T-box leader: a 201-nucleotide sequence from Clostridiales bacterium CHKCI006. Pairs were carried over by alignment from the consensus structure, which is taken from published work. The organism belongs to Eubacteriales, within Bacteria. Rfam's curators write: Uncharged tRNA acts as the effector for transcription antitermination of genes in the T-box leader family. T-boxes are found upstream of many aminoacyl-tRNA synthetase genes and some amino acid biosynthetic genes usually in Gram-positive bacteria. The family's RNA type in Rfam is cis-regulatory leader.

[Rfam]
RNA sequence: AUAAAUACAGUGAAGGAGACAUAUGCCUGUAAACAGGGUCAAGAGAGCUCGUGGUCGGUGUAAACGGGUCGAAUGGAUACAGGUAGAUCACUCUGGAGUAGCCUAUUCGAAAGUGUGAGGGUAGUGCCGUUAGUCGCGUUAAGAUAUGAGUGCAUACGUCAGUAUGAAUAAAGGUGGUACCGCGUUAUAGACGUCCUUUAG
Numbered sequence: 001a002u003a004a005a006u007a008c009a010g011u012g013a014a015g016g017a018g019a020c021a022u023a024u025g026c027c028u029g030u031a032a033a034c035a036g037g038g039u040c041a042a043g044a045g046a047g048c049u050c051g052u053g054g055u056c057g058g059u060g061u062a063a064a065c066g067g068g069u070c071g072a073a074u075g076g077a078u079a080c081a082g083g084u085a086g087a088u089c090a091c092u093c094u095g096g097a098g099u100a101g102c103c104u105a106u107u108c109g110a111a112a113g114u115g116u117g118a119g120g121g122u123a124g125u126g127c128c129g130u131u132a133g134u135c136g137c138g139u140u141a142a143g144a145u146a147u148g149a150g151u152g153c154a155u156a157c158g159u160c161a162g163u164a165u166g167a168a169u170a171a172a173g174g175u176g177g178u179a180c181c182g183c184g185u186u187a188u189a190g191a192c193g194u195c196c197u198u199u200a201g
Base pairs, nucleotide, nucleotide: 007099008098015094016093017092018091026083027082028081029080030079031078038070047069048068049067050066051065052064102126103124104123105122106121107120108119128138129137130136153166154165155164156163157162171198172197173196174195182194183193184192185191186190